[Rfam]
RNA: Selenocysteine insertion sequence 1
RNA sequence: GAGUGUUUAUGAUGGCCUGAUUGUAAACUCUUAACGAGGCAUCAGGCCUGAUGUCCCAACCACCC
Dot-bracket structure: (.(((........((((((((......(((.....)))..))))))))............))).)